[Rfam]
RNA sequence: AAUAUCGCGCUUUAAAUACACACACGUUUCGUCACAUACGGCUGGGUCCCAUGAGGGUGCUGUAUGGGGGACGUGGAGGCCUAAC
Numbered sequence: 001a002a003u004a005u006c007g008c009g010c011u012u013u014a015a016a017u018a019c020a021c022a023c024a025c026g027u028u029u030c031g032u033c034a035c036a037u038a039c040g041g042c043u044g045g046g047u048c049c050c051a052u053g054a055g056g057g058u059g060c061u062g063u064a065u066g067g068g069g070g071a072c073g074u075g076g077a078g079g080c081c082u083a084a085c
Stems, first nucleotide, its partner, number of pairs: 023075008035066008048057003
Shown here is an 85-nucleotide RNA sequence from Legionella nautarum, a member of the family "t44 RNA". From the family's description: This family consists of a number of bacterial RNA genes of between 135 and 170 bases in length. The t44 gene has been identified in several species of enteric bacteria but homologs have also been identified in Pseudomonas and Coxiella species. It is annotated as a small RNA. The base pairs follow the family's consensus structure, which was predicted with LocARNA.